The family of this 142-nucleotide RNA from Alteribacter keqinensis is "ylbH leader".
It scores 86 bits against the family's covariance model.
Rfam's curators write: This family is a putative regulatory RNA structure that is found upstream of the ylbH gene in B. subtilis and related low GC Gram-positive bacteria.
Rfam links the family to the GO term regulation of gene expression.
The organism belongs to Alteribacter, within Bacteria.

[Rfam]
RNA sequence: ACAAAAAAAUCCCGCAGAAGCAACCUUCUGCGGGUACCCUAUAAUAAGCACCCGGCCGUAAAGCCGGUUCACACUUACCAGGGCAAUGGGAGAGGAGAAACCGGAGGAAGAACUUAUGGGGAAACGUAAGUCUUCUCCGCGG
Numbered sequence: 001a002c003a004a005a006a007a008a009a010u011c012c013c014g015c016a017g018a019a020g021c022a023a024c025c026u027u028c029u030g031c032g033g034g035u036a037c038c039c040u041a042u043a044a045u046a047a048g049c050a051c052c053c054g055g056c057c058g059u060a061a062a063g064c065c066g067g068u069u070c071a072c073a074c075u076u077a078c079c080a081g082g083g084c085a086a087u088g089g090g091a092g093a094g095g096a097g098a099a100a101c102c103g104g105a106g107g108a109a110g111a112a113c114u115u116a117u118g119g120g121g122a123a124a125c126g127u128a129a130g131u132c133u134u135c136u137c138c139g140c141g142g
Stems, first nucleotide, its partner, number of pairs: 012033009038090005102139004107135004112131005
Dot-bracket structure: ...........(((((((((....)))))))))....(((((...........................................)))))...........((((.((((.(((((..........)))))))))))))...